[Rfam]
RNA sequence: ACCCUGGCCAGGAUAUCAUCAUAUACUGUAAGUUUGCAAUGAGACACUACAGUAUAGAUGAUGUACUGGACGGGCCGC
Numbered sequence: 001a002c003c004c005u006g007g008c009c010a011g012g013a014u015a016u017c018a019u020c021a022u023a024u025a026c027u028g029u030a031a032g033u034u035u036g037c038a039a040u041g042a043g044a045c046a047c048u049a050c051a052g053u054a055u056a057g058a059u060g061a062u063g064u065a066c067u068g069g070a071c072g073g074g075c076c077g078c
Stems, first nucleotide, its partner, number of pairs: 008069001010067002013064008022056009032045003